RNA: HIV-1 stem-loop 4 packaging signal
Organism: Daphnia magna
RNA sequence: UGGAUGCGAGAGCGUCAGUG
Numbered sequence: 001u002g003g004a005u006g007c008g009a010g011a012g013c014g015u016c017a018g019u020g
Stems, first nucleotide, its partner, number of pairs: 003016005